[Rfam]
RNA sequence: GAUGCGGGUCGCAACUGGCGCAUGAGGUGGAUUACCACCGGGGAGCGACUCCAUUGCAGUAGAUCGUCGGUCGUCCGCCUGGGCCUACGGU
Numbered sequence: 001g002a003u004g005c006g007g008g009u010c011g012c013a014a015c016u017g018g019c020g021c022a023u024g025a026g027g028u029g030g031a032u033u034a035c036c037a038c039c040g041g042g043g044a045g046c047g048a049c050u051c052c053a054u055u056g057c058a059g060u061a062g063a064u065c066g067u068c069g070g071u072c073g074u075c076c077g078c079c080u081g082g083g084c085c086u087a088c089g090g091u
Base pairs, nucleotide, nucleotide: 006051007050008049009048010047011046012045015042016041017079018078019077020076027038028037029036030035069085070084071083072082
This 91-nucleotide RNA from Micrococcales bacterium KH10 belongs to the Rfam family "ZMP/ZTP riboswitch aptamer (pfl RNA motif)".
It scores 56 bits against the family's covariance model.
Pairs were carried over by alignment from the consensus structure, which is taken from published work.
The organism belongs to Micrococcales, within Bacteria.